[Rfam]
Notes:
A member of the RNA family "U5 spliceosomal RNA" from Anolis carolinensis, 116 nucleotides long.
RNA sequence: AUACUCUGGUUUCUCUUCAGAUCGUAUAAAUCUUUCGCCUUUUACUAAAGAUUUCCGUGGAGAGGAACAUUUAUGAGUUUUUCUCAAAUUUUUUGAGGCUCCACUCUUGUGGAGCU
Numbered sequence: 001a002u003a004c005u006c007u008g009g010u011u012u013c014u015c016u017u018c019a020g021a022u023c024g025u026a027u028a029a030a031u032c033u034u035u036c037g038c039c040u041u042u043u044a045c046u047a048a049a050g051a052u053u054u055c056c057g058u059g060g061a062g063a064g065g066a067a068c069a070u071u072u073a074u075g076a077g078u079u080u081u082u083c084u085c086a087a088a089u090u091u092u093u094u095g096a097g098g099c100u101c102c103a104c105u106c107u108u109g110u111g112g113a114g115c116u
Base pairs, nucleotide, nucleotide: 003078004077005076006075009068010067011066012065013064014063015062016061017060018059019058028054029053030052031051032050033049034048035047096116098115099114100113101112102111103110
Its family is annotated with U5 snRNP and spliceosomal tri-snRNP complex assembly in the Gene Ontology. A reference for the family is Zwieb (1997), "The uRNA database", Nucleic Acids Res. The base pairs follow the family's consensus structure, which is taken from published work. Taxonomically the source falls in Anolis (Eukaryota, Metazoa, Sauria, Unidentata). The sequence is in the family's curated seed alignment.